RNA sequence: AUAUCAUACACGCUGAGUUCCAUAUGGAAGCGGGGGACCCACUUUUGGGGCGAAUUCCGAAAGGAUAGGAUAACUCUUUCAAUCCGAGCCCGACAGCUAACCUCGUAAGCGUUGAAAGAGGAGGA
Numbered sequence: 001a002u003a004u005c006a007u008a009c010a011c012g013c014u015g016a017g018u019u020c021c022a023u024a025u026g027g028a029a030g031c032g033g034g035g036g037a038c039c040c041a042c043u044u045u046u047g048g049g050g051c052g053a054a055u056u057c058c059g060a061a062a063g064g065a066u067a068g069g070a071u072a073a074c075u076c077u078u079u080c081a082a083u084c085c086g087a088g089c090c091c092g093a094c095a096g097c098u099a100a101c102c103u104c105g106u107a108a109g110c111g112u113u114g115a116a117a118g119a120g121g122a123g124g125a
Base pairs, nucleotide, nucleotide: 011111012110013109014108018029019028020027030106031105032104033103034102035101040047041046048091049090050089056065057064058063068085069084070083071082
The family of this 125-nucleotide RNA sequence from Maledivibacter halophilus is "c-di-AMP riboswitch aptamer (ydaO/yuaA leader)". Lineage of the source: Bacteria > Bacillati > Clostridia > Peptostreptococcales > Maledivibacter. It scores 104 bits against the family's covariance model. About the family: This family represents a conserved RNA structure found upstream of the ydaO and yuaA genes in Bacillus subtilis and related genes in other bacteria.